[Rfam]
RNA sequence: AUUGCCCUGCUUUGUGCGUGUGUAACCUGAAGUUUUGAGCCAACAUUGAAGAAAUAGGGAGCCCGGUUUCACGCAAGGGAAUGUAGACCUUACCGGCAUAAGGAAACAGGAAAUUGCGGAAGGGCACCCACCUGUUGGAGAACAGGUUCAAAAAACUUUGGGUAUAAACACGGCAUGGUGGGGUUUCC
Numbered sequence: 001a002u003u004g005c006c007c008u009g010c011u012u013u014g015u016g017c018g019u020g021u022g023u024a025a026c027c028u029g030a031a032g033u034u035u036u037g038a039g040c041c042a043a044c045a046u047u048g049a050a051g052a053a054a055u056a057g058g059g060a061g062c063c064c065g066g067u068u069u070c071a072c073g074c075a076a077g078g079g080a081a082u083g084u085a086g087a088c089c090u091u092a093c094c095g096g097c098a099u100a101a102g103g104a105a106a107c108a109g110g111a112a113a114u115u116g117c118g119g120a121a122g123g124g125c126a127c128c129c130a131c132c133u134g135u136u137g138g139a140g141a142a143c144a145g146g147u148u149c150a151a152a153a154a155a156c157u158u159u160g161g162g163u164a165u166a167a168a169c170a171c172g173g174c175a176u177g178g179u180g181g182g183g184u185u186u187c188c
Base pairs, nucleotide, nucleotide: 004184005183006182007181008180009179010178011177013175014174015173017172018171019170032156033155034154035152036150037149038148039147040146041145057129058128059127061125062124063123064122072118073117074116075115076114083107084106088103089102090101091100092099

This 188-nucleotide RNA from Desulforamulus hydrothermalis belongs to the Rfam family "6S / SsrS RNA". NCBI's taxonomy places the organism under Bacteria, Bacillati, Bacillota, Clostridia, Desulforamulus hydrothermalis. By type it is a non-coding RNA gene. The family's consensus secondary structure is taken from published work.